[Rfam]
RNA: Small nucleolar RNA SNORD63
Organism: Aotus nancymaae
Nucleotides: 062
Base pairs, nucleotide, nucleotide: 001061002060003059004058
Number, partner (000 for none) and nucleotide at each position: 001061g002060u003059g004058c005000a006000g007000u008000g009000a010000u011000u012000u013000g014000u015000c016000a017000a018000c019000a020000c021000a022000u023000c024000a025000u026000u027000c028000u029000g030000a031000a032000g033000a034000a035000a036000u037000g038000u039000g040000g041000u042000g043000a044000u045000a046000c047000c048000c049000u050000g051000u052000g053000a054000c055000u056000g057000a058004g059003c060002a061001c062000g